[Rfam]
RNA sequence: CAUCAAGGCUAAAUUAGUGUUUGGCUUGAUGCGUUUUUUAAUUACCUUUAACUCAAUAAUAUUGAGGGAAGGGUUAACACACUAAGGAUUUUUUAUGUCUUUAAAUGCUUCACAAAAAGCUGCAAUCGUUGCAGAAUAUGCUCAAUCAGAA
Numbered sequence: 001c002a003u004c005a006a007g008g009c010u011a012a013a014u015u016a017g018u019g020u021u022u023g024g025c026u027u028g029a030u031g032c033g034u035u036u037u038u039u040a041a042u043u044a045c046c047u048u049u050a051a052c053u054c055a056a057u058a059a060u061a062u063u064g065a066g067g068g069a070a071g072g073g074u075u076a077a078c079a080c081a082c083u084a085a086g087g088a089u090u091u092u093u094u095a096u097g098u099c100u101u102u103a104a105a106u107g108c109u110u111c112a113c114a115a116a117a118a119g120c121u122g123c124a125a126u127c128g129u130u131g132c133a134g135a136a137u138a139u140g141c142u143c144a145a146u147c148a149g150a151a
Stems, first nucleotide, its partner, number of pairs: 007026006047105003084102004